[Rfam]
RNA sequence: CUGCGGUGAGGACUUUCUUAGGACACCUUUGGAUUUAAUUGUGAAAAGAAAACUCAUCUCUGAGCAGC
Numbered sequence: 001c002u003g004c005g006g007u008g009a010g011g012a013c014u015u016u017c018u019u020a021g022g023a024c025a026c027c028u029u030u031g032g033a034u035u036u037a038a039u040u041g042u043g044a045a046a047a048g049a050a051a052a053c054u055c056a057u058c059u060c061u062g063a064g065c066a067g068c
Base pairs, nucleotide, nucleotide: 001067002066003065004064
Overview
Shown here is a 68-nucleotide RNA sequence from Chauna torquata, a member of the family "Small nucleolar RNA SNORD58". A search with the family's covariance model found it, with a score of 70 bits. A reference for the family is Galardi et al. (2002), "Purified box C/D snoRNPs are able to reproduce site-specific 2'-O-methylation of target RNA in vitro", Mol Cell Biol. About the family: snoRNA U58 is found in introns 1, 3 and 6 of the ribosomal protein RPL17 gene in humans. Its Rfam clan is "SNORD58 clan". The organism belongs to Chauna, within Eukaryota. The family has 33 seed sequences and 2,484 matches in Rfam 15.1.